[Rfam]
RNA sequence: UUAACUCUUUUGGGAGAACUCGGUGUUAGGCCGACGCCGAAGGCGUAACCCGUCCGUAAUCGCUCAGGCAAAUGGACCAUAAGAGGGGU
Number, nucleotide and partner (000 for none) at each position: 001u000002u000003a000004a000005c000006u084007c083008u082009u081010u000011u079012g078013g077014g000015a000016g000017a000018a000019c000020u034021c033022g032023g031024u000025g000026u000027u000028a000029g000030g000031c023032c022033g021034a020035c000036g069037c068038c067039g065040a064041a000042g000043g063044c062045g061046u000047a000048a000049c000050c056051c000052g000053u000054c000055c000056g050057u000058a000059a000060u000061c045062g044063c043064u040065c039066a000067g038068g037069c036070a000071a000072a000073u000074g000075g000076a000077c013078c012079a011080u000081a009082a008083g007084a006085g000086g000087g000088g000089u000
This 89-nucleotide RNA sequence from Cycloclasticus sp. symbiont of Poecilosclerida sp. N belongs to the Rfam family "Glycine riboswitch aptamer".
A search with the family's covariance model found it, with a score of 64 bits.
Its family is annotated with glycine biosynthetic process in the Gene Ontology.
Rfam describes the family as follows. This family represents the bacterial glycine riboswitch.